A member of the RNA family "Fluoride riboswitch aptamer (crcB RNA motif)" from Luteolibacter pohnpeiensis, 98 nucleotides long.
[Rfam]
RNA sequence: CGCGUGCAAGGCAAUGGAUUUCUGCCGCCCGGUUUUCCCGGGAAACCGCUCGGAUUGGUCCCUCCAUGGGACACCGGGCUGAUGAUUCCUACUCCAAA
Numbered sequence: 001c002g003c004g005u006g007c008a009a010g011g012c013a014a015u016g017g018a019u020u021u022c023u024g025c026c027g028c029c030c031g032g033u034u035u036u037c038c039c040g041g042g043a044a045a046c047c048g049c050u051c052g053g054a055u056u057g058g059u060c061c062c063u064c065c066a067u068g069g070g071a072c073a074c075c076g077g078g079c080u081g082a083u084g085a086u087u088c089c090u091a092c093u094c095c096a097a098a
Stems, first nucleotide, its partner, number of pairs: 010026004016089003020085002048079006